[Rfam]
RNA sequence: GGGUCGAUGAUGACACUGCAAUGGGGCUGAAAAGAGGUGAUGUCUUAAAAAACAGGCUCAAUAGGAUUACGCUGAGGCCC
Numbered sequence: 001g002g003g004u005c006g007a008u009g010a011u012g013a014c015a016c017u018g019c020a021a022u023g024g025g026g027c028u029g030a031a032a033a034g035a036g037g038u039g040a041u042g043u044c045u046u047a048a049a050a051a052a053c054a055g056g057c058u059c060a061a062u063a064g065g066a067u068u069a070c071g072c073u074g075a076g077g078c079c080c
Stems, first nucleotide, its partner, number of pairs: 001080004005074002008071002